ybhL leader: an 81-nucleotide RNA from Sinorhizobium alkalisoli. The match comes from Rfam's covariance-model search (71 bits). It is annotated as a cis-regulatory leader. From the family's description: This family is a putative regulatory RNA structure that is found upstream of an uncharacterized membrane protein in alpha-proteobacteria. The base pairs follow the family's consensus structure. The source organism's lineage runs through Bacteria, Pseudomonadota, Alphaproteobacteria, Hyphomicrobiales and Sinorhizobium.

RNA sequence: CAGGCAUGCUGGAGCCCCGCAGCGGCGCCUGGGCGCGUCAACAGACCGCCGCCCGACACCGUCACACAAACCGGGGCUUAA
Numbered sequence: 001c002a003g004g005c006a007u008g009c010u011g012g013a014g015c016c017c018c019g020c021a022g023c024g025g026c027g028c029c030u031g032g033g034c035g036c037g038u039c040a041a042c043a044g045a046c047c048g049c050c051g052c053c054c055g056a057c058a059c060c061g062u063c064a065c066a067c068a069a070a071c072c073g074g075g076g077c078u079u080a081a
Base pairs, nucleotide, nucleotide: 012079013078014077015076016075017074018073019072023061024060025059030055031054032053033052036048